[Rfam]
RNA sequence: AAGGUUCCGGUUCACGCCUGCCAUAGGGGCAAGGCGACCCGGGUCACC
Numbered sequence: 001a002a003g004g005u006u007c008c009g010g011u012u013c014a015c016g017c018c019u020g021c022c023a024u025a026g027g028g029g030c031a032a033g034g035c036g037a038c039c040c041g042g043g044u045c046a047c048c
Stems, first nucleotide, its partner, number of pairs: 003048003007042004015036004019031004